Shown here is a 73-nucleotide sequence from Deinococcus cellulosilyticus, a member of the family "tRNA". A search with the family's covariance model found it, with a score of 73 bits. Lineage of the source: Bacteria > Thermotogati > Deinococci > Deinococcus > Deinococcus cellulosilyticus.
RNA sequence: GGAUCGUUAGCUCAAUCGGCAGAGCAGCUGACUCUUAAUCAGCGGGUUGUAGGUUCGAUUCCUACACGAUCCA
Numbered sequence: 001g002g003a004u005c006g007u008u009a010g011c012u013c014a015a016u017c018g019g020c021a022g023a024g025c026a027g028c029u030g031a032c033u034c035u036u037a038a039u040c041a042g043c044g045g046g047u048u049g050u051a052g053g054u055u056c057g058a059u060u061c062c063u064a065c066a067c068g069a070u071c072c073a
Stems, first nucleotide, its partner, number of pairs: 001072007010025004027043005049065005